The record is a 100-nucleotide RNA sequence from Sphingobium cloacae, which matches "Repression of heat shock gene expression (ROSE) element" in Rfam. The organism belongs to Sphingobium, within Bacteria. A search with the family's covariance model found it, with a score of 51 bits. The family's consensus secondary structure is taken from published work.
Nucleotides: 100
Base pairs, nucleotide, nucleotide: 001022002021003020004019005018006017008016009015033058034057035056036055037054038053039052040051041050059098062095063094066091067090068089069088070087071086072085074084075083076082
Number, partner (000 for none) and nucleotide at each position: 001022c002021c003020g004019g005018g006017u007000g008016c009015c010000u011000c012000u013000g014000c015009g016008g017006g018005c019004c020003c021002g022001g023000c024000a025000g026000g027000a028000c029000a030000a031000g032000a033058g034057g035056g036055c037054g038053u039052c040051g041050g042000c043000u044000c045000u046000c047000u048000c049000u050041c051040c052039g053038a054037c055036g056035c057034c058033u059098c060000a061000g062095a063094u064000g065000u066091c067090c068089a069088a070087a071086u072085u073000g074084c075083u076082c077000a078000c079000g080000a081000g082076g083075a084074g085072g086071a087070u088069u089068u090067g091066g092000c093000g094063a095062u096000g097000a098059g099000a100000g
For this family Rfam cites "A mRNA-based thermosensor controls expression of rhizobial heat shock genes" (Nocker et al., Nucleic Acids Res, 2001). About the family: This family represents a 5' UTR cis-regulatory element found in heat shock mRNAs and is known as the ROSE (repression of heat shock gene expression) element. The ROSE element is a negative regulator of heat shock gene expression.